Shown here is a 76-nucleotide sequence from Ameiurus melas, a member of the family "mir-7563 microRNA precursor family".
Pairs were carried over by alignment from the consensus structure, which was predicted with RNAalifold.
Taxonomically the source falls in Ameiurus (Eukaryota, Vertebrata, Gnathostomata, Siluriformes).

Nucleotides: 076
Base pairs, nucleotide, nucleotide: 001074002073004071005070006069007068008067009066010065011064012063013062015060017058018057019056020055021054022053023052024051025050026049027048029046031044033042034041035040
Number, partner (000 for none) and nucleotide at each position: 001074a002073c003000u004071g005070u006069g007068u008067a009066c010065u011064u012063a013062c014000g015060u016000a017058c018057u019056a020055u021054a022053u023052a024051g025050u026049a027048g028000c029046c030000a031044a032000g033042a034041u035040a036000c037000a038000u039000g040035u041034a042033u043000u044031u045000c046029g047000c048027c049026u050025a051024c052023u053022a054021u055020a056019u057018a058017g059000c060015a061000g062013g063012u064011a065010a066009g067008u068007a069006c070005g071004c072000u073002g074001u075000u076000u

It scores 83 bits against the family's covariance model.